[Rfam]
Background: Shown here is a 122-nucleotide sequence from Galbibacter orientalis, a member of the family "Group II catalytic intron D1-D4-2". The literature on the family includes a 2001 paper in Trends Genet by Bonen and Vogel, "The ins and outs of group II introns". A search with the family's covariance model found it, with a score of 80 bits. Rfam describes the family as follows. Group II introns are found in rRNA, tRNA and mRNA of organelles in fungi, plants and protists, and also in mRNA in bacteria. Rfam links the family to the GO term Group II intron splicing. The family has 144 seed sequences and 1,231 matches in Rfam 15.1.
RNA sequence: AGUCGAAGUGACCCACCGGUGCUGUUCUACAGGGGAGAGCAUCAAACCCCCAUAAGGUGCUUUGGUAAAGAGUCAAGGUAUUGAGCGUUAUGGAAACGACUGUGCCAUGAGCGUGGUCAGGU
Numbered sequence: 001a002g003u004c005g006a007a008g009u010g011a012c013c014c015a016c017c018g019g020u021g022c023u024g025u026u027c028u029a030c031a032g033g034g035g036a037g038a039g040c041a042u043c044a045a046a047c048c049c050c051c052a053u054a055a056g057g058u059g060c061u062u063u064g065g066u067a068a069a070g071a072g073u074c075a076a077g078g079u080a081u082u083g084a085g086c087g088u089u090a091u092g093g094a095a096a097c098g099a100c101u102g103u104g105c106c107a108u109g110a111g112c113g114u115g116g117u118c119a120g121g122u
Base pairs, nucleotide, nucleotide: 002016003015005013018043019042020041021040022039023038025036026035027034028033048121050093051092052091053090054089055088056082057081059079060078061077063075064074065073066072098118099117100116101115102114103113
Dot-bracket structure: .((.(.......).)).((((((.((((....)))).))))))....(.((((((((.(((.((((.....)))).))).)).....))))))....((((((.........))))))..).